[Rfam]
RNA sequence: ACUACUCCCACGUCUCAGUUUCCGUCCAACGUUUAAUCGUCCGUCUUAUUUAAAAAAUUUAUAAAAAAAUUUAUAAGUUAAGUCACACAUAAAGUAAUAUUCAUAUUUUAUCAUCUAAUAACAAUAAAAAUACUAAUGAUAAAAAAUAUUUCAAAAAAACGGAUGGUCAAAGUUGGGCAUUGAAACCCACAACUGCGCUUAUU
Dot-bracket structure: ........................((((((.(((.(((((((((.((.(........................................................................................................).)).))))))))).)))))))))..........................